[Rfam]
RNA sequence: CAUCUUUAUGAUGGAUAUUAAUGGAAUUUAAAGUAGUGGACUGAACUCUGUUGAUGAUGCAGCAAUUCUGAGUGAUG
Numbered sequence: 001c002a003u004c005u006u007u008a009u010g011a012u013g014g015a016u017a018u019u020a021a022u023g024g025a026a027u028u029u030a031a032a033g034u035a036g037u038g039g040a041c042u043g044a045a046c047u048c049u050g051u052u053g054a055u056g057a058u059g060c061a062g063c064a065a066u067u068c069u070g071a072g073u074g075a076u077g
Base pairs, nucleotide, nucleotide: 001077002076003075004074006072

Small nucleolar RNA R21: a 77-nucleotide RNA sequence from Manihot esculenta. Rfam 15.1 lists 472 matches to the family in 146 species. The literature on the family includes a 2001 paper in J Mol Biol by Barneche et al., "Identification of 66 box C/D snoRNAs in Arabidopsis thaliana: extensive gene duplications generated multiple isoforms predicting new ribosomal RNA 2'-O-methylation sites". The organism belongs to Manihot, within Eukaryota.